The family of this 148-nucleotide RNA sequence from Olsenella profusa is "FMN riboswitch aptamer (RFN element)".
[Rfam]
RNA sequence: CAUCAGUUUCAGGGCGGGGUGAGAGUCCCCACUGGCGGUAAGUGGCCGCACGCCGUGAGCCACGAGUCCGCGCACCGCGAUGAAAAGAGCGGUUGACCUGGUGAGAGUCCAGGACCAACGGUCAUAGUCCGGAUGAGAGAAACGGAGG
Numbered sequence: 001c002a003u004c005a006g007u008u009u010c011a012g013g014g015c016g017g018g019g020u021g022a023g024a025g026u027c028c029c030c031a032c033u034g035g036c037g038g039u040a041a042g043u044g045g046c047c048g049c050a051c052g053c054c055g056u057g058a059g060c061c062a063c064g065a066g067u068c069c070g071c072g073c074a075c076c077g078c079g080a081u082g083a084a085a086a087g088a089g090c091g092g093u094u095g096a097c098c099u100g101g102u103g104a105g106a107g108u109c110c111a112g113g114a115c116c117a118a119c120g121g122u123c124a125u126a127g128u129c130c131g132g133a134u135g136a137g138a139g140a141a142a143c144g145g146a147g148g
Stems, first nucleotide, its partner, number of pairs: 003146002006143005017029003031128002033117002035071004066115002074093003097113005119131003

Description: NCBI's taxonomy places the organism under Bacteria, Actinomycetota, Coriobacteriales, Olsenella, Olsenella profusa.